[Rfam]
RNA sequence: UUGCAGUGAUGACCAUUUAGGACACCUUUGUAUUACCCAUGAAAAGACGGUAUCAAGUCUGAGCAAU
Number, nucleotide and partner (000 for none) at each position: 001u066002u065003g064004c063005a000006g000007u000008g000009a000010u000011g000012a000013c000014c000015a000016u000017u000018u000019a000020g000021g000022a000023c000024a000025c000026c000027u000028u000029u000030g000031u000032a000033u000034u000035a000036c000037c000038c000039a000040u000041g000042a000043a000044a000045a000046g000047a000048c000049g000050g000051u000052a000053u000054c000055a000056a000057g000058u000059c000060u000061g000062a000063g004064c003065a002066a001067u000
Small nucleolar RNA SNORD58: a 67-nucleotide RNA sequence from Anabas testudineus.
From the family's description: snoRNA U58 is found in introns 1, 3 and 6 of the ribosomal protein RPL17 gene in humans.
The base pairs follow the family's consensus structure, which was predicted with PFOLD.
Taxonomically the source falls in Anabas (Eukaryota, Deuterostomia, Ctenosquamata, Percomorphaceae).